This 66-nucleotide RNA sequence from Microcaecilia unicolor belongs to the Rfam family "MAT2A 3'UTR stem loop A". Pairs were carried over by alignment from the consensus structure, which is taken from published work. The family's RNA type in Rfam is cis-regulatory element. Rfam 15.1 lists 595 matches to the family in 507 species.
Nucleotides: 066
Base pairs, nucleotide, nucleotide: 001066002065003064008059009058010057011056013054014053015052016051019047020046023043024042025041026034027033
Number, partner (000 for none) and nucleotide at each position: 001066g002065c003064u004000u005000u006000u007000u008059c009058c010057u011056u012000c013054c014053a015052g016051a017000c018000c019047u020046g021000u022000a023043g024042g025041c026034g027033u028000a029000g030000g031000c032000u033027a034026c035000a036000g037000a038000g039000a040000a041025g042024c043023c044000u045000u046020u047019a048000g049000g050000u051016u052015c053014u054013g055000g056011g057010a058009g059008g060000g061000a062000a063000u064003g065002g066001c
For this family Rfam cites "New families of human regulatory RNA structures identified by comparative analysis of vertebrate genomes" (Parker et al., Genome Res, 2011).
NCBI's taxonomy places the organism under Eukaryota, Euteleostomi, Amphibia, Siphonopidae, Microcaecilia.